Nucleotides: 144
Stems, first nucleotide, its partner, number of pairs: 006028005038057003041053002043050002069084004090141002093139003101110002116135004
Number, partner (000 for none) and nucleotide at each position: 001000g002000g003000c004000u005000u006028g007027u008026g009025u010024c011000g012000c013000c014000a015000a016000u017000a018000u019000a020000c021000u022000u023000a024010g025009a026008c027007a028006c029000c030000c031000a032000u033000a034000a035000a036000a037000c038057c039056a040055g041053g042052c043050a044049c045000u046000a047000g048000g049044g050043u051000u052042g053041c054000g055040c056039u057038g058000g059000g060000g061000a062000a063000g064000g065000a066000a067000c068000u069084u070083c071082c072081g073000u074000g075000c076000a077000g078000u079000a080000g081072c082071g083070g084069a085000g086000a087000c088000u089000u090141g091140u092000u093139g094138c095137c096000a097000c098000u099000a100000u101110c102109c103000u104000u105000g106000a107000c108000a109102g110101g111000a112000c113000g114000c115000a116135a117134u118133u119132c120000a121000c122000g123000g124000u125000a126000u127000g128000a129000a130000a131000c132119g133118a134117a135116u136000u137095g138094g139093c140091a141090c142000u143000a144000g